[Rfam]
RNA sequence: CCACGGUGGUAGCUGGGGACAGCAGCCUCAUGGUGGUGGUAGCUGG
Numbered sequence: 001c002c003a004c005g006g007u008g009g010u011a012g013c014u015g016g017g018g019a020c021a022g023c024a025g026c027c028u029c030a031u032g033g034u035g036g037u038g039g040u041a042g043c044u045g046g
Stems, first nucleotide, its partner, number of pairs: 001033003005029002